6S / SsrS RNA: a 188-nucleotide RNA sequence from Jeotgalibacillus sp. S-D1. Pairs were carried over by alignment from the consensus structure, which is taken from published work. It scores 104 bits against the family's covariance model. The family's RNA type in Rfam is non-coding RNA gene. Lineage of the source: Bacteria > Bacillati > Bacillota > Bacilli > Jeotgalibacillus. E. coli 6S RNA was the first non coding RNA to be sequenced, but its function was unknown until recently. It consists of 184 nucleotides that fold into an extended hairpin structure with a large single-stranded internal bulge.
RNA sequence: CAAGUCCUGAUGUGUACGUUAUCUAUUCAAUCAGUUUUGACCGAACAAUUCUAUGUUUGGGAGUCUGCGUUUUCUUAUAGCAUGCAUGCCUUUUGCGAGGACGCACCAAGUGAGAAACAGGGCACCCACCUGCUGAGAGCGGGUUCAAAACGAUAGAUAUUUCCCGAGACGGCACGAUUGGGAUUUGC
Numbered sequence: 001c002a003a004g005u006c007c008u009g010a011u012g013u014g015u016a017c018g019u020u021a022u023c024u025a026u027u028c029a030a031u032c033a034g035u036u037u038u039g040a041c042c043g044a045a046c047a048a049u050u051c052u053a054u055g056u057u058u059g060g061g062a063g064u065c066u067g068c069g070u071u072u073u074c075u076u077a078u079a080g081c082a083u084g085c086a087u088g089c090c091u092u093u094u095g096c097g098a099g100g101a102c103g104c105a106c107c108a109a110g111u112g113a114g115a116a117a118c119a120g121g122g123c124a125c126c127c128a129c130c131u132g133c134u135g136a137g138a139g140c141g142g143g144u145u146c147a148a149a150a151c152g153a154u155a156g157a158u159a160u161u162u163c164c165c166g167a168g169a170c171g172g173c174a175c176g177a178u179u180g181g182g183a184u185u186u187g188c
Stems, first nucleotide, its partner, number of pairs: 002186010012175004017171003034151003038147003041143002059127003063123004070117001072116007084104002089100004